[Rfam]
RNA: T-box leader
RNA sequence: UCAAAUGUGAUGAACAGGACAGGACUUCCCGACAGGGAGCACUUUCAGAGAGCCGCCGUUUGGUGUGAGGCGGCAGUGCGGGAGGGAAGCCAUCCCCUGCCAGCAGUCCGUGCGAAAGGAAUUUUGAGUAGUGCGGGCCGGAGGCCCACCGUUACAGGGGCGCGCAUUCAUCUCCAUAUCCGGGGAGAUGCGGCAGAGGGGCCGGAGCAAUCCGGCAAGAGGAGUGGCAACGCGGAGAAAUAUCUUUCGUCUUCUCG
Numbered sequence: 001u002c003a004a005a006u007g008u009g010a011u012g013a014a015c016a017g018g019a020c021a022g023g024a025c026u027u028c029c030c031g032a033c034a035g036g037g038a039g040c041a042c043u044u045u046c047a048g049a050g051a052g053c054c055g056c057c058g059u060u061u062g063g064u065g066u067g068a069g070g071c072g073g074c075a076g077u078g079c080g081g082g083a084g085g086g087a088a089g090c091c092a093u094c095c096c097c098u099g100c101c102a103g104c105a106g107u108c109c110g111u112g113c114g115a116a117a118g119g120a121a122u123u124u125u126g127a128g129u130a131g132u133g134c135g136g137g138c139c140g141g142a143g144g145c146c147c148a149c150c151g152u153u154a155c156a157g158g159g160g161c162g163c164g165c166a167u168u169c170a171u172c173u174c175c176a177u178a179u180c181c182g183g184g185g186a187g188a189u190g191c192g193g194c195a196g197a198g199g200g201g202c203c204g205g206a207g208c209a210a211u212c213c214g215g216c217a218a219g220a221g222g223a224g225u226g227g228c229a230a231c232g233c234g235g236a237g238a239a240a241u242a243u244c245u246u247u248c249g250u251c252u253u254c255u256c257g
Base pairs, nucleotide, nucleotide: 007104008103015099016098017097018096025085026084027083028082029081030080041077042076043075052074053073054072055071056070057069107137108136109135110134111133112132113131139151140150141149201216202215203214204213205212206211221254222253223252224251232250233249234248235247236246